[Rfam]
RNA sequence: GGGGGUGUAAUGGUCUCGACAUUGGCAUUCGCGCAUGUGGUGCACUCCGGAGGGCUCGGCUCCGUCAUCAACGGCACAGUUAAUAUAACUGCUAAAAACGAAAAUUCUUACGCUCUCGCUGCCUAAAGUAGCUUAAGCGUGAUCCGCCCAGUCUCACCCAAGGGCUAGAUACGGGUCUCAAAAUCAUUGGGUUACGGCGACCGGUGCGACUCGAGCUUGUCGCAAGAGAUAGUGAGCAUGCGUUCGUGGGUUAGCCAGGUUGGCCGGCGCGCCACGUGCGCGAGAUUUAAAUAGGUCGACUAUGAGUGUAGAGCCAUGUGUUGGCGGGGUUGAUGGACAGGAGUUCGAUUCUCCUCACCUCCAUAG
Numbered sequence: 001g002g003g004g005g006u007g008u009a010a011u012g013g014u015c016u017c018g019a020c021a022u023u024g025g026c027a028u029u030c031g032c033g034c035a036u037g038u039g040g041u042g043c044a045c046u047c048c049g050g051a052g053g054g055c056u057c058g059g060c061u062c063c064g065u066c067a068u069c070a071a072c073g074g075c076a077c078a079g080u081u082a083a084u085a086u087a088a089c090u091g092c093u094a095a096a097a098a099c100g101a102a103a104a105u106u107c108u109u110a111c112g113c114u115c116u117c118g119c120u121g122c123c124u125a126a127a128g129u130a131g132c133u134u135a136a137g138c139g140u141g142a143u144c145c146g147c148c149c150a151g152u153c154u155c156a157c158c159c160a161a162g163g164g165c166u167a168g169a170u171a172c173g174g175g176u177c178u179c180a181a182a183a184u185c186a187u188u189g190g191g192u193u194a195c196g197g198c199g200a201c202c203g204g205u206g207c208g209a210c211u212c213g214a215g216c217u218u219g220u221c222g223c224a225a226g227a228g229a230u231a232g233u234g235a236g237c238a239u240g241c242g243u244u245c246g247u248g249g250g251u252u253a254g255c256c257a258g259g260u261u262g263g264c265c266g267g268c269g270c271g272c273c274a275c276g277u278g279c280g281c282g283a284g285a286u287u288u289a290a291a292u293a294g295g296u297c298g299a300c301u302a303u304g305a306g307u308g309u310a311g312a313g314c315c316a317u318g319u320g321u322u323g324g325c326g327g328g329g330u331u332g333a334u335g336g337a338c339a340g341g342a343g344u345u346c347g348a349u350u351c352u353c354c355u356c357a358c359c360u361c362c363a364u365a366g
Stems, first nucleotide, its partner, number of pairs: 001362007020335007028327001030324001033321009043308005048064005054077001057074001114136001118132005141177006148168001150166005156192006197223005203217003210236004240281004245276005254268003259300004339355005
RNA: transfer-messenger RNA